[Rfam]
RNA sequence: UUUCUAGUGUAAGUAUGUCCCGGGCAAUGUUUGGGACAUACUUACACUGAAA
Numbered sequence: 001u002u003u004c005u006a007g008u009g010u011a012a013g014u015a016u017g018u019c020c021c022g023g024g025c026a027a028u029g030u031u032u033g034g035g036a037c038a039u040a041c042u043u044a045c046a047c048u049g050a051a052a
Stems, first nucleotide, its partner, number of pairs: 006048007014040003018036004022031001